Shown here is a 383-nucleotide RNA from Methylocella silvestris, a member of the family "Bacterial RNase P class A". Taxonomically the source falls in Methylocella silvestris (Bacteria, Pseudomonadati, Pseudomonadota, Hyphomicrobiales). The family's RNA type in Rfam is ribozyme.

[Rfam]
RNA sequence: CCAGUCGGCCGGAUGGCCGCCGCCUCAGGGCGGAGGAAAGUCCGGGCUCCACAGAGAAACGGUGCCGGAUAACGUCCGGCGGGGGCGACCCUAGGGAAAGCGCCACAGAAAACAGACCGCCAUCCGGCUUGCGCCGGAGGUAAGGGUGAAACGGUGCGGUAAGAGCGCACCGCGCGCAUGGCGACAUGAGCGGCACGGCAAGCCCCACCGGGAGCAAAACCGAAUAGGGGCGACGCGGGGCGCAGGCCCCAGAUCCUUCUCUGGAUCGUCGCCCGGGUUGGUUGCUCGAGGCGGCCGGUAACGGCCGUCCCAGAGGAAUGGCCAUCGCGCGCCGCGGACUCCGCGGCGCCUUACAGAACCCGGCUUAAAGGCCGGCUGGCGCC
Numbered sequence: 001c002c003a004g005u006c007g008g009c010c011g012g013a014u015g016g017c018c019g020c021c022g023c024c025u026c027a028g029g030g031c032g033g034a035g036g037a038a039a040g041u042c043c044g045g046g047c048u049c050c051a052c053a054g055a056g057a058a059a060c061g062g063u064g065c066c067g068g069a070u071a072a073c074g075u076c077c078g079g080c081g082g083g084g085g086c087g088a089c090c091c092u093a094g095g096g097a098a099a100g101c102g103c104c105a106c107a108g109a110a111a112a113c114a115g116a117c118c119g120c121c122a123u124c125c126g127g128c129u130u131g132c133g134c135c136g137g138a139g140g141u142a143a144g145g146g147u148g149a150a151a152c153g154g155u156g157c158g159g160u161a162a163g164a165g166c167g168c169a170c171c172g173c174g175c176g177c178a179u180g181g182c183g184a185c186a187u188g189a190g191c192g193g194c195a196c197g198g199c200a201a202g203c204c205c206c207a208c209c210g211g212g213a214g215c216a217a218a219a220c221c222g223a224a225u226a227g228g229g230g231c232g233a234c235g236c237g238g239g240g241c242g243c244a245g246g247c248c249c250c251a252g253a254u255c256c257u258u259c260u261c262u263g264g265a266u267c268g269u270c271g272c273c274c275g276g277g278u279u280g281g282u283u284g285c286u287c288g289a290g291g292c293g294g295c296c297g298g299u300a301a302c303g304g305c306c307g308u309c310c311c312a313g314a315g316g317a318a319u320g321g322c323c324a325u326c327g328c329g330c331g332c333c334g335c336g337g338a339c340u341c342c343g344c345g346g347c348g349c350c351u352u353a354c355a356g357a358a359c360c361c362g363g364c365u366u367a368a369a370g371g372c373c374g375g376c377u378g379g380c381g382c383c
Stems, first nucleotide, its partner, number of pairs: 001379010012326007020033005038366003042363005047214004056260001058258001060210005065079005080094001081092004095205002100203002102199003117145002119141003123138006153171006172194001173192003177188004218283004228274006252267005290309008